[Rfam]
RNA sequence: UUCUUAUCAAGAGAGGCGGAGGGACAGGCCCUAUGAAGCCCGGCAGCCGGUUCAUUUUCGAAUGAACGUCGCGGUGCCAAUUCCUACAGGAUUUUUGGAUCUUGUACAGAUGAGAA
Numbered sequence: 001u002u003c004u005u006a007u008c009a010a011g012a013g014a015g016g017c018g019g020a021g022g023g024a025c026a027g028g029c030c031c032u033a034u035g036a037a038g039c040c041c042g043g044c045a046g047c048c049g050g051u052u053c054a055u056u057u058u059c060g061a062a063u064g065a066a067c068g069u070c071g072c073g074g075u076g077c078c079a080a081u082u083c084c085u086a087c088a089g090g091a092u093u094u095u096u097g098g099a100u101c102u103u104g105u106a107c108a109g110a111u112g113a114g115a116a
Stems, first nucleotide, its partner, number of pairs: 001116008013041001015040003021031003026085003042078004047074002049070003082108001087104006

SAM riboswitch aptamer (S box leader): a 116-nucleotide RNA from Brevibacillus brevis.
Its family is annotated with regulation of gene expression in the Gene Ontology.
Pairs were carried over by alignment from the consensus structure, which is taken from published work.
NCBI's taxonomy places the organism under Bacteria, Bacillati, Bacillota, Brevibacillus, Brevibacillus brevis.
The family has 457 seed sequences and 9,625 matches in Rfam 15.1.